[Rfam]
RNA: Group II catalytic intron D1-D4-6
Organism: Pelotomaculum isophthalicicum
Nucleotides: 238
Stems, first nucleotide, its partner, number of pairs: 013035004020030002023207001025205002040088002044085004048080002050075011123234001126231006148225006154181003159175003186219004191213006
Number, partner (000 for none) and nucleotide at each position: 001000a002000g003000a004000u005000g006000g007000u008000u009000g010000c011000c012000u013035u014034g015033a016032u017000a018000a019000a020030g021029c022000c023207u024000a025205a026204c027000c028000a029021g030020c031000a032016g033015u034014c035013a036000u037000g038000c039000a040088c041087c042000g043000a044085g045084u046083c047082u048080u049079g050075c051074g052073u053072g054071g055070u056069g057068c058067g059066u060065g061000g062000u063000a064000a065060c066059a067058u068057g069056c070055a071054u072053u073052g074051c075050g076000a077000a078000g079049c080048g081000u082047a083046g084045a085044c086000a087041g088040g089000a090000a091000g092000a093000u094000a095000g096000u097000a098000g099000g100000c101000c102000g103000g104000a105000a106000u107000a108000a109000a110000g111000u112000g113000a114000a115000u116000a117000g118000g119000a120000u121000a122000a123234u124000u125000a126231g127230c128229c129228c130227c131226g132000a133000a134000a135000u136000u137000g138000a139000a140000c141000g142000u143000g144000u145000u146000g147000u148225g149224a150223a151222g152221u153220a154181g155180c156179c157000g158000a159175c160174c161173u162000u163000u164000u165000c166000u167000c168000u169000c170000u171000a172000u173161g174160g175159g176000g177000a178000a179156g180155g181154c182000a183000g184000a185000a186219g187218u188217u189216a190000a191213g192212u193211a194210u195209c196208c197000g198000u199000u200000a201000u202000u203000g204026g205025u206000g207023a208196g209195g210194a211193u212192a213191u214000a215000u216189u217188a218187a219186u220153u221152g222151c223150u224149u225148c226131c227130g228129g229128g230127g231126u232000u233000c234123g235000u236000a237000c238000c